[Rfam]
Shown here is a 98-nucleotide RNA from Paludisphaera borealis, a member of the family "Bacterial small signal recognition particle RNA". The match comes from Rfam's covariance-model search (64 bits). The source organism's lineage runs through Bacteria, Pseudomonadati, Isosphaerales, Isosphaeraceae and Paludisphaera. About the family: The signal recognition particle (SRP) is a universally conserved ribonucleoprotein involved in the co-translational targeting of proteins to membranes. The literature on the family includes a 2003 paper in Nucleic Acids Res by Rosenblad et al., "SRPDB: Signal Recognition Particle Database".
RNA sequence: GGGGGGGACCCGGGCAAUGGGGGUUUGUGAACCUGGUCAGGGCGGGAACGCAGCAGCCAUAAGCAUCACCCUCAUGUGCGCGGGAGAACCUCCCCGGC
Numbered sequence: 001g002g003g004g005g006g007g008a009c010c011c012g013g014g015c016a017a018u019g020g021g022g023g024u025u026u027g028u029g030a031a032c033c034u035g036g037u038c039a040g041g042g043c044g045g046g047a048a049c050g051c052a053g054c055a056g057c058c059a060u061a062a063g064c065a066u067c068a069c070c071c072u073c074a075u076g077u078g079c080g081c082g083g084g085a086g087a088a089c090c091u092c093c094c095c096g097g098c
Stems, first nucleotide, its partner, number of pairs: 004092004009084004014079001015076001017075006026065003034059004042051003